[Rfam]
RNA sequence: AGUUUUUCGAAUCCGUGCUGAGAUUUCGUCAGACGCCAAAAUAUUCGGGUUGAUCAGACUUCCAAGGUAAGUGAAGUU
Number, nucleotide and partner (000 for none) at each position: 001a000002g077003u076004u075005u074006u073007u000008c071009g000010a000011a068012u067013c066014c000015g000016u064017g063018c000019u000020g061021a060022g059023a000024u058025u057026u056027c000028g054029u053030c052031a000032g000033a000034c000035g000036c000037c000038a000039a000040a000041a000042u000043a000044u000045u000046c000047g000048g000049g000050u000051u000052g030053a029054u028055c000056a026057g025058a024059c022060u021061u020062c000063c017064a016065a000066g013067g012068u011069a000070a000071g008072u000073g006074a005075a004076g003077u002078u000
The family of this 78-nucleotide RNA sequence from Schistosoma margrebowiei is "mir-3492 microRNA precursor family". NCBI's taxonomy places the organism under Eukaryota, Bilateria, Protostomia, Lophotrochozoa, Schistosoma. Rfam 15.1 lists 21,496 matches to the family in 13 species.